The record is a 56-nucleotide sequence from Rhizobacter gummiphilus, which matches "nhaA-I RNA" in Rfam.

[Rfam]
RNA sequence: GGGUGUUAGCCGCAUGUCGCGGCGGGACAGGUUCAUGCGAUGGUCGGGCCGCCACG
Numbered sequence: 001g002g003g004u005g006u007u008a009g010c011c012g013c014a015u016g017u018c019g020c021g022g023c024g025g026g027a028c029a030g031g032u033u034c035a036u037g038c039g040a041u042g043g044u045c046g047g048g049c050c051g052c053c054a055c056g
Stems, first nucleotide, its partner, number of pairs: 005028003009023003038056002041054004
The organism belongs to Rhizobacter, within Bacteria. About the family: Acidobacteria, Alphaproteobacteria, Betaproteobacteria and Gammaproteobacteria, Verrucomicrobia, cand. division NC10.